[Rfam]
The family of this 423-nucleotide part of an RNA from Herdmania momus is "Eukaryotic large subunit ribosomal RNA". Taxonomically the source falls in Herdmania (Eukaryota, Opisthokonta, Bilateria, Pyuridae). Pairs were carried over by alignment from the consensus structure, which is taken from published work.
RNA sequence: CGACCUGAGUUCAGGCGAGAGCACCCGCUGAAUUUAAGCAUAUUAUUAAGUAGAGGAAAAGAAACCAACCGGGAUUACCGAGUAACGCAGUGAAGUGGAAGAGUCCAACGUCGAAUCUGCGCGCUUGUGCGAGCGCGCGAAGUGUGACGUACGGAAGUCCCUGUGCGACCGUCGGCGAGCGCCGGUGUCCUUCUGAUCGAGGCCUCAGCCCGUAGCAGGUGUCAGGCCUAUAAGGGUGUUGGCCGCGGUCGCUGCGGGUCUUCCCGGAGUCGGGUUGUUUGGGAAUGCAGCCCAAAGCGGGUGGUAAACUCCACCUAAGACUAAAUACUGUUGCGAGACCGAUAGAGAACAAGUACCGUGAGGAAAGUUGGAAAGCACUUUGAAGAGAGAGUUCAAAAGUACGUGAAACCGUUGAGAGGCAAA
Numbered sequence: 001c002g003a004c005c006u007g008a009g010u011u012c013a014g015g016c017g018a019g020a021g022c023a024c025c026c027g028c029u030g031a032a033u034u035u036a037a038g039c040a041u042a043u044u045a046u047u048a049a050g051u052a053g054a055g056g057a058a059a060a061g062a063a064a065c066c067a068a069c070c071g072g073g074a075u076u077a078c079c080g081a082g083u084a085a086c087g088c089a090g091u092g093a094a095g096u097g098g099a100a101g102a103g104u105c106c107a108a109c110g111u112c113g114a115a116u117c118u119g120c121g122c123g124c125u126u127g128u129g130c131g132a133g134c135g136c137g138c139g140a141a142g143u144g145u146g147a148c149g150u151a152c153g154g155a156a157g158u159c160c161c162u163g164u165g166c167g168a169c170c171g172u173c174g175g176c177g178a179g180c181g182c183c184g185g186u187g188u189c190c191u192u193c194u195g196a197u198c199g200a201g202g203c204c205u206c207a208g209c210c211c212g213u214a215g216c217a218g219g220u221g222u223c224a225g226g227c228c229u230a231u232a233a234g235g236g237u238g239u240u241g242g243c244c245g246c247g248g249u250c251g252c253u254g255c256g257g258g259u260c261u262u263c264c265c266g267g268a269g270u271c272g273g274g275u276u277g278u279u280u281g282g283g284a285a286u287g288c289a290g291c292c293c294a295a296a297g298c299g300g301g302u303g304g305u306a307a308a309c310u311c312c313a314c315c316u317a318a319g320a321c322u323a324a325a326u327a328c329u330g331u332u333g334c335g336a337g338a339c340c341g342a343u344a345g346a347g348a349a350c351a352a353g354u355a356c357c358g359u360g361a362g363g364a365a366a367g368u369u370g371g372a373a374a375g376c377a378c379u380u381u382g383a384a385g386a387g388a389g390a391g392u393u394c395a396a397a398a399g400u401a402c403g404u405g406a407a408a409c410c411g412u413u414g415a416g417a418g419g420c421a422a423a
Stems, first nucleotide, its partner, number of pairs: 024055001025053001027051003035042002065072002076099001078098003085091002102322004109149005115143001116141001118139007154263004159258001161257004169248004174243001177239001180238004187203001189202004211215001218228002272293007299316005356363002378389004